[Rfam]
RNA: glmS glucosamine-6-phosphate activated ribozyme aptamer
Organism: Solibacillus sp. R5-41
RNA sequence: AAAAUAAUUAUAGCGCCUGAGCUAAGGAAUCGAACGGAUAGCAAACCUUAGUUGACGAGGUGGAGGUUUAUCGAAAUUUCGGCGGAUGCCUCCCGAUCGCAUGCCCGGUCGUAAUUUUCGUUUUAAAACAGAGGAGUAAUCCUGUGCACAGAAAAACGAAACGGCAACAAA
Numbered sequence: 001a002a003a004a005u006a007a008u009u010a011u012a013g014c015g016c017c018u019g020a021g022c023u024a025a026g027g028a029a030u031c032g033a034a035c036g037g038a039u040a041g042c043a044a045a046c047c048u049u050a051g052u053u054g055a056c057g058a059g060g061u062g063g064a065g066g067u068u069u070a071u072c073g074a075a076a077u078u079u080c081g082g083c084g085g086a087u088g089c090c091u092c093c094c095g096a097u098c099g100c101a102u103g104c105c106c107g108g109u110c111g112u113a114a115u116u117u118u119c120g121u122u123u124u125a126a127a128a129c130a131g132a133g134g135a136g137u138a139a140u141c142c143u144g145u146g147c148a149c150a151g152a153a154a155a156a157c158g159a160a161a162c163g164g165c166a167a168c169a170a171a
Base pairs, nucleotide, nucleotide: 020053021052022051023050024049025048026047027046062093063092064091065090066089071082072081073080074079094111095110096109097108098107099106116161117160118159119158120157121156122155129146130145132143133142134141135140